[Rfam]
RNA sequence: AUGCAGGCCGUUGUCAGCGAGGCUUGGCCUGUAGUGCCUUUGUCCUUUCCUAAAGUGUCUGCUAGAGAGAACUGAGAUGGUUUGAGGCCCUGCUGUGUCUCCUCCAUGGCAAGGUUAUAGGUAAACCUCAGACAACU
Numbered sequence: 001a002u003g004c005a006g007g008c009c010g011u012u013g014u015c016a017g018c019g020a021g022g023c024u025u026g027g028c029c030u031g032u033a034g035u036g037c038c039u040u041u042g043u044c045c046u047u048u049c050c051u052a053a054a055g056u057g058u059c060u061g062c063u064a065g066a067g068a069g070a071a072c073u074g075a076g077a078u079g080g081u082u083u084g085a086g087g088c089c090c091u092g093c094u095g096u097g098u099c100u101c102c103u104c105c106a107u108g109g110c111a112a113g114g115u116u117a118u119a120g121g122u123a124a125a126c127c128u129c130a131g132a133c134a135a136c137u
Stems, first nucleotide, its partner, number of pairs: 003062006020046003026039002029036001073130004088114002091111003095107003
Dot-bracket structure: ..((((((...........(((...((.(......).))....)))..........))))))..........((((...........((.(((.(((.......))).))).))............)))).......
This 137-nucleotide RNA sequence from Coregonus sp. 'balchen' belongs to the Rfam family "Small nucleolar RNA SNORA9". The organism belongs to Coregonus, within Eukaryota. It scores 97 bits against the family's covariance model. The family's RNA type in Rfam is H/ACA-box small nucleolar RNA. Rfam's curators write: ACA9 is a member of the H/ACA class of snoRNA that guide the sites of modification of uridines to pseudouridines. Rfam 15.1 lists 1,202 matches to the family in 518 species. Its family is annotated with RNA processing and nucleolus in the Gene Ontology.